Shown here is a 122-nucleotide RNA sequence from Bacillus smithii, a member of the family "ylbH leader". Its family is annotated with regulation of gene expression in the Gene Ontology. Pairs were carried over by alignment from the consensus structure. The family's RNA type in Rfam is cis-regulatory leader. The source organism's lineage runs through Bacteria, Bacillati, Bacillota, Bacillaceae and Bacillus smithii. Rfam's curators write: This family is a putative regulatory RNA structure that is found upstream of the ylbH gene in B. subtilis and related low GC Gram-positive bacteria.

RNA sequence: ACGGAAAAAAACCUGCAGGAUUUCCUGCAGGGCCCUUCUAAUUCCUAGUAAAAGGAUAGAAGGUAAAGGGAGAGGAGAAACCGGAGGAAGAACUUAUGGGGAAACGUAAGUCUUCUCCGCGG
Numbered sequence: 001a002c003g004g005a006a007a008a009a010a011a012c013c014u015g016c017a018g019g020a021u022u023u024c025c026u027g028c029a030g031g032g033c034c035c036u037u038c039u040a041a042u043u044c045c046u047a048g049u050a051a052a053a054g055g056a057u058a059g060a061a062g063g064u065a066a067a068g069g070g071a072g073a074g075g076a077g078a079a080a081c082c083g084g085a086g087g088a089a090g091a092a093c094u095u096a097u098g099g100g101g102a103a104a105c106g107u108a109a110g111u112c113u114u115c116u117c118c119g120c121g122g
Stems, first nucleotide, its partner, number of pairs: 012031008033070005042058001043056004082119004087115004092111005